[Rfam]
RNA sequence: CGCCUCACUGCAGGAGAGCGGGCUGCCGGCAGGCAGCCCCACCGAAGGCGCAAACUCCCAUAAACGCUCAGGUCGGCUCGCGCAAGCGGGCCUGUACUGCACGA
Numbered sequence: 001c002g003c004c005u006c007a008c009u010g011c012a013g014g015a016g017a018g019c020g021g022g023c024u025g026c027c028g029g030c031a032g033g034c035a036g037c038c039c040c041a042c043c044g045a046a047g048g049c050g051c052a053a054a055c056u057c058c059c060a061u062a063a064a065c066g067c068u069c070a071g072g073u074c075g076g077c078u079c080g081c082g083c084a085a086g087c088g089g090g091c092c093u094g095u096a097c098u099g100c101a102c103g104a
Stems, first nucleotide, its partner, number of pairs: 006099002009096005020039004041073003044069002048067003054061001
Dot-bracket structure: .....((.(((((......((((............)))).(((((..(((...(......)...))))).)))..................))))).)).....